[Rfam]
RNA sequence: CAUUGAUGUGAUGAUAAGCUUCUUCCGAAUUAUCUUUGUGUAGACCCUAAAUUAUCAGACUACAAUUAUCUGAUCAAUG
Number, nucleotide and partner (000 for none) at each position: 001c079002a078003u077004u076005g075006a074007u000008g000009u000010g000011a000012u000013g000014a000015u000016a000017a000018g000019c000020u000021u000022c000023u000024u000025c000026c000027g000028a000029a000030u000031u000032a000033u000034c000035u000036u000037u000038g000039u000040g000041u000042a000043g000044a000045c000046c000047c000048u000049a000050a000051a000052u000053u000054a000055u000056c000057a000058g000059a000060c000061u000062a000063c000064a000065a000066u000067u000068a000069u000070c000071u000072g000073a000074u006075c005076a004077a003078u002079g001
A member of the RNA family "Small nucleolar RNA Z155" from Cannabis sativa, 79 nucleotides long. The match comes from Rfam's covariance-model search (60 bits). It is annotated as a C/D-box small nucleolar RNA. The pairing is the family consensus, mapped onto this sequence.